[Rfam]
RNA: MIR4371 microRNA precursor family
Organism: Glycine max
RNA sequence: CCAUUAAGUGAUAAUGUGACAAAUAAAGUGUCAUGUCAUUAUGCUUUGUCAUAGAUACCUCAUUGUCAUAUCAUCACCUUUAAUGACGUGUUAGUGAUUGGACGUGAUAAUGUGACACUUUCUCUAUCAUAUUAUCACUUAACGGAA
Numbered sequence: 001c002c003a004u005u006a007a008g009u010g011a012u013a014a015u016g017u018g019a020c021a022a023a024u025a026a027a028g029u030g031u032c033a034u035g036u037c038a039u040u041a042u043g044c045u046u047u048g049u050c051a052u053a054g055a056u057a058c059c060u061c062a063u064u065g066u067c068a069u070a071u072c073a074u075c076a077c078c079u080u081u082a083a084u085g086a087c088g089u090g091u092u093a094g095u096g097a098u099u100g101g102a103c104g105u106g107a108u109a110a111u112g113u114g115a116c117a118c119u120u121u122c123u124c125u126a127u128c129a130u131a132u133u134a135u136c137a138c139u140u141a142a143c144g145g146a147a
Base pairs, nucleotide, nucleotide: 001145002144004142005141006140007139008138009137010136011135012134013133014132015131016130017129018128019127021125023123025121026120027119028118029117030116031115032114033113034112035111036110038108039107040106041105042104043103045101046100048098049097050096051095052094054092055091056090057089058088072085073084074083